[Rfam]
RNA: Glycine riboswitch aptamer
RNA sequence: UGAUCCGCAGCGGGAGAGUCCUUCCGCCACCAACCAGGCAGAAAGCGCCGUAGGAGCAAACCCUCCCCGGGAAUCUCUCAGGCACAUGUACCGCUGCGGCAAG
Numbered sequence: 001u002g003a004u005c006c007g008c009a010g011c012g013g014g015a016g017a018g019u020c021c022u023u024c025c026g027c028c029a030c031c032a033a034c035c036a037g038g039c040a041g042a043a044a045g046c047g048c049c050g051u052a053g054g055a056g057c058a059a060a061c062c063c064u065c066c067c068c069g070g071g072a073a074u075c076u077c078u079c080a081g082g083c084a085c086a087u088g089u090a091c092c093g094c095u096g097c098g099g100c101a102a103g
Base pairs, nucleotide, nucleotide: 006098007097008096009095010094011093012092013091020045022043023042047083048082049081050079054077055076056075061069